[Rfam]
RNA sequence: AGCUUUGCGCAGAGGCGAUACCGUAACUAAUGAGGUUUAUCCGAGGUGCGGUUAUUGCUGGUUGAAAACUUUUCACCAAUACCCCGCCAUAUUGGCCUGAAACAUGGCUGGUAUGUGCAAUAUUUGAUAGUCCCGCACGGGG
Numbered sequence: 001a002g003c004u005u006u007g008c009g010c011a012g013a014g015g016c017g018a019u020a021c022c023g024u025a026a027c028u029a030a031u032g033a034g035g036u037u038u039a040u041c042c043g044a045g046g047u048g049c050g051g052u053u054a055u056u057g058c059u060g061g062u063u064g065a066a067a068a069c070u071u072u073u074c075a076c077c078a079a080u081a082c083c084c085c086g087c088c089a090u091a092u093u094g095g096c097c098u099g100a101a102a103c104a105u106g107g108c109u110g111g112u113a114u115g116u117g118c119a120a121u122a123u124u125u126g127a128u129a130g131u132c133c134c135g136c137a138c139g140g141g142g
Base pairs, nucleotide, nucleotide: 020052021051022050023049024048026047027046028045034042035041086118087117089114090113091112092111093110094109095108096107097106131142132141133140134139
The family of this 142-nucleotide RNA sequence from Romanomermis culicivorax is "U4 spliceosomal RNA". The family is grouped with related families in Rfam's "U4 clan". NCBI's taxonomy places the organism under Eukaryota, Metazoa, Mermithida, Mermithidae, Romanomermis.